[Rfam]
The family of this 94-nucleotide RNA from Fictibacillus aquaticus is "pan motif". Lineage of the source: Bacteria > Bacillota > Bacilli > Fictibacillaceae > Fictibacillus. The family's RNA type in Rfam is cis-regulatory element.
RNA sequence: CAGGCGGUAUCCGACGGAACUGCACUGAGUACGAUAGUUGAUCAAUUUUAUAGUUGUCUGAUCUGCCUAGAUCCAAAAGGACCGGGACAGAGGG
Numbered sequence: 001c002a003g004g005c006g007g008u009a010u011c012c013g014a015c016g017g018a019a020c021u022g023c024a025c026u027g028a029g030u031a032c033g034a035u036a037g038u039u040g041a042u043c044a045a046u047u048u049u050a051u052a053g054u055u056g057u058c059u060g061a062u063c064u065g066c067c068u069a070g071a072u073c074c075a076a077a078a079g080g081a082c083c084g085g086g087a088c089a090g091a092g093g094g
Base pairs, nucleotide, nucleotide: 001027002026003025004023005022006021007020008019010018011017063090064089065088066086067085068084070082072081073080074079